[Rfam]
RNA: L31-Firmicutes ribosomal protein leader
Organism: Leuconostoc carnosum
RNA sequence: CUCUGUUACAGAAGUUUCAGGGCGCUAAGGAG
Dot-bracket structure: (((((..((....))..)))))..........